Rfam assigns this 86-nucleotide sequence from Actinoplanes campanulatus to the family "ZMP/ZTP riboswitch aptamer (pfl RNA motif)". A search with the family's covariance model found it, with a score of 53 bits. The source organism's lineage runs through Bacteria, Actinomycetota, Actinomycetes, Micromonosporaceae and Actinoplanes.

[Rfam]
RNA sequence: CCGGUGGGCCGUGACUGGCGCUGAGGUGGGGCACCACCGGGAAGCGGCCCGCCGACACGGCCGUGCCGCGCGCCUGGGCGAUCCGU
Numbered sequence: 001c002c003g004g005u006g007g008g009c010c011g012u013g014a015c016u017g018g019c020g021c022u023g024a025g026g027u028g029g030g031g032c033a034c035c036a037c038c039g040g041g042a043a044g045c046g047g048c049c050c051g052c053c054g055a056c057a058c059g060g061c062c063g064u065g066c067c068g069c070g071c072g073c074c075u076g077g078g079c080g081a082u083c084c085g086u
Base pairs, nucleotide, nucleotide: 003053004052005051006050007049008048009047010046011045012044015041016040017074018073019072020071021070026037027036028035029034064080065079066078067077